A member of the RNA family "Purine riboswitch aptamer" from Lysinibacillus composti, 102 nucleotides long. Riboswitches are metabolite binding domains within certain messenger RNAs that serve as precision sensors for their corresponding targets.
RNA sequence: GAGUAAAUUAAAUAACGUCGUCGUAUAAUGUCGGGAAUAUGGCCCGAAAGUUUCUACCAAGCUACCUUAAAUAGCUUGACUACGAAUUAACUUUGAGAGGAU
Numbered sequence: 001g002a003g004u005a006a007a008u009u010a011a012a013u014a015a016c017g018u019c020g021u022c023g024u025a026u027a028a029u030g031u032c033g034g035g036a037a038u039a040u041g042g043c044c045c046g047a048a049a050g051u052u053u054c055u056a057c058c059a060a061g062c063u064a065c066c067u068u069a070a071a072u073a074g075c076u077u078g079a080c081u082a083c084g085a086a087u088u089a090a091c092u093u094u095g096a097g098a099g100g101a102u
Stems, first nucleotide, its partner, number of pairs: 021085005029049001031047005058078007